[Rfam]
The record is a 92-nucleotide RNA from Lonepinella koalarum, which matches "TPP riboswitch aptamer (THI element)" in Rfam. Its family is annotated with thiamine pyrophosphate binding in the Gene Ontology. The family's consensus secondary structure is taken from published work. Rfam describes the family as follows. Vitamin B(1) in its active form thiamin pyrophosphate (TPP) is an essential coenzyme that is synthesised by coupling of pyrimidine and thiazole moieties in bacteria.
RNA sequence: UAGCUCUAGUCGGGGUGCUUCUAUAAGCUGAGAUCAUACCCGUUGAACCUGAAACAGCUAAUACUGACGUAGGAAACUAAACCAUGAAAAAC
Numbered sequence: 001u002a003g004c005u006c007u008a009g010u011c012g013g014g015g016u017g018c019u020u021c022u023a024u025a026a027g028c029u030g031a032g033a034u035c036a037u038a039c040c041c042g043u044u045g046a047a048c049c050u051g052a053a054a055c056a057g058c059u060a061a062u063a064c065u066g067a068c069g070u071a072g073g074a075a076a077c078u079a080a081a082c083c084a085u086g087a088a089a090a091a092c
Stems, first nucleotide, its partner, number of pairs: 007079004011042004016036001017028004048073004055066003